Source information: Shown here is a 96-nucleotide RNA sequence, a member of the family "Bacterial small signal recognition particle RNA". A search with the family's covariance model found it, with a score of 64 bits. It is annotated as a non-coding RNA gene.
RNA sequence: GGAAGCCCCUCGCGUGGCGUCAUCUUAGAAAAUCCCCCAGGACCGGAAGGUAGCAAGGGUAUUUAGGCUCUGACGGGUGCGCGAGGGGUCUUAUUC
Dot-bracket structure: ..(((.(.(((((((..(((((.((((((....(((.....(((....))).....)))..))))))...))))).)..))))))..).)))....
Clan: SRP clan.